[Rfam]
Rfam assigns this 81-nucleotide RNA sequence from Flavobacterium sp. ALD4 to the family "Flavo-1 RNA".
Rfam classes the family as a small RNA.
The family's consensus secondary structure is taken from published work.
It scores 50 bits against the family's covariance model.
The source organism's lineage runs through Bacteria, Bacteroidota, Flavobacteriales, Flavobacteriaceae and Flavobacterium.
RNA sequence: UGCUCGCGUGAAGGAUAGCAGUGGAAAUCCUUUUAUGUAACGUAGUGAAAUAAAAGAUUGCAACGUACAGCCUGACGCUGC
Numbered sequence: 001u002g003c004u005c006g007c008g009u010g011a012a013g014g015a016u017a018g019c020a021g022u023g024g025a026a027a028u029c030c031u032u033u034u035a036u037g038u039a040a041c042g043u044a045g046u047g048a049a050a051u052a053a054a055a056g057a058u059u060g061c062a063a064c065g066u067a068c069a070g071c072c073u074g075a076c077g078c079u080g081c
Stems, first nucleotide, its partner, number of pairs: 012073003016069001021064002026059004032054005038048001